RNA sequence: GAAAGGGUCCGGGCCCCUCUGGCAACCGCAUGGCAGCGGGUUGCGAUGUCGGAACCUUCGC
Numbered sequence: 001g002a003a004a005g006g007g008u009c010c011g012g013g014c015c016c017c018u019c020u021g022g023c024a025a026c027c028g029c030a031u032g033g034c035a036g037c038g039g040g041u042u043g044c045g046a047u048g049u050c051g052g053a054a055c056c057u058u059c060g061c
Stems, first nucleotide, its partner, number of pairs: 006055001008053005022044005027038003
RNA: terC RNA
Organism: Octadecabacter antarcticus